[Rfam]
RNA sequence: AAAAUGGUCUUGUAGGGUUCCGCAAAUUGGUUCAUUUGGUCUGGUCCAAGACAAGGCACACAUCUUUAUAUAAAAAGAUGUGACACGGAGGGAUAAAAGCCCGGGAGAU
Numbered sequence: 001a002a003a004a005u006g007g008u009c010u011u012g013u014a015g016g017g018u019u020c021c022g023c024a025a026a027u028u029g030g031u032u033c034a035u036u037u038g039g040u041c042u043g044g045u046c047c048a049a050g051a052c053a054a055g056g057c058a059c060a061c062a063u064c065u066u067u068a069u070a071u072a073a074a075a076a077g078a079u080g081u082g083a084c085a086c087g088g089a090g091g092g093a094u095a096a097a098a099g100c101c102c103g104g105g106a107g108a109u
Base pairs, nucleotide, nucleotide: 007057008056009055010054011053012052015047016046020044021043022041023038024037025036026035027034059082060081061080062079063078064077065076066075084104086107090102091101092100

Guanidine-I riboswitch aptamer: a 109-nucleotide RNA from Alkalihalobacillus alcalophilus. The base pairs follow the family's consensus structure. Rfam's curators write: This family represents a conserved RNA structure found upstream of the ykkC and yxkD genes in Bacillus subtilis and related genes in other bacteria. It scores 90 bits against the family's covariance model. The source organism's lineage runs through Bacteria, Bacillota, Bacillaceae, Alkalihalobacillus and Alkalihalobacillus alcalophilus. Gene Ontology term of the family: regulation of gene expression.